[Rfam]
RNA sequence: GGGCGCACUGUCUUCGGCGUGCACUCAUCUUUCUCCCGCCCAUGGCCCGCGUCACUCGCAGGAGUGAACAUCGCCAACUGGGCUGCCCUUGGCGGACGUUGCCUGACCUACUCUCGGCGCAACGGACCCGUACAAAUGCGACGGCCUUCGCCGGGGCGGCAAUCCCCCACGAACGCCCCGACAGUGUUGAGGAGAAGGCCUGGAUG
Number, nucleotide and partner (000 for none) at each position: 001g000002g000003g000004c000005g000006c000007a185008c184009u183010g182011u000012c000013u000014u000015c000016g040017g039018c038019g037020u000021g000022c000023a000024c000025u000026c000027a000028u000029c000030u000031u000032u000033c000034u000035c000036c000037c019038g018039c017040c016041c000042a000043u000044g000045g000046c000047c000048c000049g000050c000051g000052u067053c066054a065055c064056u063057c062058g000059c000060a000061g000062g057063a056064g055065u054066g053067a052068a000069c000070a000071u000072c000073g000074c000075c000076a000077a000078c000079u000080g000081g000082g118083c117084u116085g115086c000087c000088c000089u000090u000091g000092g000093c000094g000095g000096a000097c000098g000099u000100u000101g000102c000103c000104u000105g000106a000107c000108c000109u000110a000111c000112u000113c000114u000115c085116g084117g083118c082119g000120c000121a000122a000123c000124g000125g000126a000127c000128c000129c000130g000131u000132a000133c000134a000135a000136a000137u000138g000139c000140g000141a000142c000143g177144g176145c175146c000147u173148u000149c171150g170151c000152c000153g166154g165155g164156g163157c000158g000159g000160c000161a000162a000163u156164c155165c154166c153167c000168c000169a000170c150171g149172a000173a147174c000175g145176c144177c143178c000179c000180g000181a000182c010183a009184g008185u007186g000187u000188u204189g000190a000191g201192g200193a000194g000195a000196a000197g000198g000199c000200c192201u191202g000203g000204a188205u000206g000
RNA: Streptomyces sRNA 4677